[Rfam]
RNA sequence: GCAGACACACUCUGUUCUUUGCUGCUUACUCCAGCCUGGGACUUUUUCUGUCUGCUACAUAAACACGCAGAAUGUAACACGAUUAGCUUGGCUAAAAGUCUGCUGGUGUUGCAUUUUUCUACAUUUCG
Numbered sequence: 001g002c003a004g005a006c007a008c009a010c011u012c013u014g015u016u017c018u019u020u021g022c023u024g025c026u027u028a029c030u031c032c033a034g035c036c037u038g039g040g041a042c043u044u045u046u047u048c049u050g051u052c053u054g055c056u057a058c059a060u061a062a063a064c065a066c067g068c069a070g071a072a073u074g075u076a077a078c079a080c081g082a083u084u085a086g087c088u089u090g091g092c093u094a095a096a097a098g099u100c101u102g103c104u105g106g107u108g109u110u111g112c113a114u115u116u117u118u119c120u121a122c123a124u125u126u127c128g
Stems, first nucleotide, its partner, number of pairs: 001055006014042005022034003067119001069117011084105004
The record is a 128-nucleotide RNA from Xiphophorus maculatus, which matches "Small nucleolar RNA SNORA77" in Rfam. The family's RNA type in Rfam is H/ACA-box small nucleolar RNA. The source organism's lineage runs through Eukaryota, Craniata, Gnathostomata, Ctenosquamata and Xiphophorus. From the family's description: ACA63 (SNORA77) is a member of the H/ACA class of snoRNAs that guide the sites of modification of uridines to pseudouridines. This snoRNA was identified by computational screening and its expression in mouse experimentally verified by Northern blot and primer extension analysis. The family's consensus secondary structure was predicted with RNAalifold.